The record is a 71-nucleotide RNA from Geotrypetes seraphini, which matches "mir-451 microRNA precursor family" in Rfam.
RNA sequence: AUAGGGGCAGCAGCAGAACCGUUACCAUUACUAAAGUCAGUAAUGGUAACGGUUUAACUGACACUCCUUAG
Numbered sequence: 001a002u003a004g005g006g007g008c009a010g011c012a013g014c015a016g017a018a019c020c021g022u023u024a025c026c027a028u029u030a031c032u033a034a035a036g037u038c039a040g041u042a043a044u045g046g047u048a049a050c051g052g053u054u055u056a057a058c059u060g061a062c063a064c065u066c067c068u069u070a071g
Stems, first nucleotide, its partner, number of pairs: 007064001011060003017054004022049011
Its family is annotated with miRNA-mediated post-transcriptional gene silencing and RISC complex in the Gene Ontology. The organism belongs to Geotrypetes, within Eukaryota. On this family, see Yu et al., Genes Dev 2010: "miR-451 protects against erythroid oxidant stress by repressing 14-3-3zeta".